The family of this 134-nucleotide sequence from Cricetulus griseus is "Small nucleolar RNA SNORA51".
RNA sequence: GGCUUCUUCAUCCUUAAGGACAGGUUGCUUUCAUAUUCUGCCUCUAUAGAAAGAGGAGGCAGAGUAAACCGAUGCCAUGUACACUUCAGUCCAGGCUGCUGUACCUAGUCUGUAUUGUGAAUGGGGAGAUCUUG
Numbered sequence: 001g002g003c004u005u006c007u008u009c010a011u012c013c014u015u016a017a018g019g020a021c022a023g024g025u026u027g028c029u030u031u032c033a034u035a036u037u038c039u040g041c042c043u044c045u046a047u048a049g050a051a052a053g054a055g056g057a058g059g060c061a062g063a064g065u066a067a068a069c070c071g072a073u074g075c076c077a078u079g080u081a082c083a084c085u086u087c088a089g090u091c092c093a094g095g096c097u098g099c100u101g102u103a104c105c106u107a108g109u110c111u112g113u114a115u116u117g118u119g120a121a122u123g124g125g126g127a128g129a130u131c132u133u134g
Stems, first nucleotide, its partner, number of pairs: 002060007022043002027038001030035001073126001075124004087112003091108001093106003
NCBI's taxonomy places the organism under Eukaryota, Gnathostomata, Euarchontoglires, Cricetidae, Cricetulus.
Gene Ontology terms of the family: nucleolus and RNA processing.
Rfam describes the family as follows. ACA51 is a member of the H/ACA class of snoRNA that guide the sites of modification of uridines to pseudouridines.